This 136-nucleotide sequence from Tetracentron sinense belongs to the Rfam family "MIR828 microRNA precursor family". On this family, see Rajagopalan et al., Genes Dev 2006: "A diverse and evolutionarily fluid set of microRNAs in Arabidopsis thaliana". Its family is annotated with miRNA-mediated post-transcriptional gene silencing and RISC complex in the Gene Ontology. Taxonomically the source falls in Tetracentron (Eukaryota, Streptophytina, Euphyllophyta, Trochodendraceae). Pairs were carried over by alignment from the consensus structure, which was predicted with RNAalifold.
RNA sequence: GUAAUGUUUCUUGCUCAAAUGAGUAUUCCAGACACAGUUGCCAGUUGGAUGCGUUUCCUUUCACUGCACUCAUCUCGCUCUUCAGUUCUCUCUAUGCUGCUGCUGCUGAGAUACUCAUUCGAGCAAGCAACGUUAA
Numbered sequence: 001g002u003a004a005u006g007u008u009u010c011u012u013g014c015u016c017a018a019a020u021g022a023g024u025a026u027u028c029c030a031g032a033c034a035c036a037g038u039u040g041c042c043a044g045u046u047g048g049a050u051g052c053g054u055u056u057c058c059u060u061u062c063a064c065u066g067c068a069c070u071c072a073u074c075u076c077g078c079u080c081u082u083c084a085g086u087u088c089u090c091u092c093u094a095u096g097c098u099g100c101u102g103c104u105g106c107u108g109a110g111a112u113a114c115u116c117a118u119u120c121g122a123g124c125a126a127g128c129a130a131c132g133u134u135a136a
Stems, first nucleotide, its partner, number of pairs: 004133005010127007018119010029108002